The record is a 63-nucleotide RNA sequence from Malurus elegans, which matches "Small nucleolar RNA SNORD42" in Rfam. From the family's description: snoRNA U42 is found in intron 3 of the ribosomal protein L23a (RPL23a) gene in humans and is also present in mice. NCBI's taxonomy places the organism under Eukaryota, Chordata, Dipnotetrapodomorpha, Dinosauria, Malurus. Pairs were carried over by alignment from the consensus structure, which was predicted with PFOLD.
[Rfam]
Nucleotides: 063
Base pairs, nucleotide, nucleotide: 001063002062003061004060005059
Number, partner (000 for none) and nucleotide at each position: 001063g002062u003061g004060c005059a006000a007000a008000u009000g010000a011000u012000g013000u014000a015000g016000a017000c018000u019000g020000a021000u022000u023000c024000u025000g026000c027000u028000g029000a030000a031000u032000a033000a034000u035000g036000u037000g038000a039000u040000g041000u042000u043000c044000a045000a046000a047000a048000g049000g050000a051000a052000c053000c054000a055000c056000u057000g058000a059005u060004g061003c062002a063001c